Shown here is a 193-nucleotide RNA sequence from Martinezella rhizogenes, a member of the family "Rhizobiales sRNA Atu_C9". Taxonomically the source falls in Martinezella rhizogenes (Bacteria, Pseudomonadati, Hyphomicrobiales, Martinezella). It is annotated as a small RNA. The sequence is in the family's curated seed alignment. The base pairs follow the family's consensus structure, which was predicted with WAR. For this family Rfam cites "Deep sequencing uncovers numerous small RNAs on all four replicons of the plant pathogen Agrobacterium tumefaciens" (Wilms et al., RNA Biol, 2012).

[Rfam]
RNA sequence: GGUUGACUAAGGAGGAAGACAUGGGAUUGACACGAUCCAUCAACGUCCUAGUGGUCGGAGCAGCCUUCGUAUUCGUCGUGACGAUGCUUUUCAUCUGACGAAGAACGAUCACCGCAGACAACCGAACUCCUGAAAGCAAACAAAACAGCCUAUUCCAUUUAAAAAGCGCAUGCCGAAGAUCGACAUGCGCUUU
Number, nucleotide and partner (000 for none) at each position: 001g000002g000003u000004u000005g000006a000007c000008u000009a000010a000011g000012g000013a000014g047015g046016a000017a000018g000019a000020c000021a000022u000023g000024g038025g037026a036027u000028u000029g000030a000031c000032a000033c000034g000035a000036u026037c025038c024039a000040u000041c000042a000043a000044c000045g000046u015047c014048c000049u000050a000051g000052u000053g000054g000055u000056c000057g000058g000059a000060g000061c000062a000063g000064c000065c000066u000067u000068c000069g000070u000071a000072u000073u000074c000075g000076u000077c000078g000079u000080g000081a000082c000083g000084a000085u000086g000087c000088u000089u000090u000091u000092c000093a000094u000095c000096u000097g000098a000099c000100g000101a000102a000103g000104a000105a000106c000107g000108a000109u000110c000111a000112c000113c000114g000115c000116a000117g000118a000119c000120a000121a000122c000123c000124g000125a000126a000127c000128u000129c000130c000131u000132g000133a000134a000135a000136g000137c000138a000139a000140a000141c000142a000143a000144a000145a000146c000147a000148g000149c000150c000151u000152a000153u000154u000155c000156c000157a000158u000159u000160u000161a000162a000163a193164a192165a191166g190167c189168g188169c187170a186171u185172g184173c000174c182175g181176a000177a000178g000179a000180u000181c175182g174183a000184c172185a171186u170187g169188c168189g167190c166191u165192u164193u163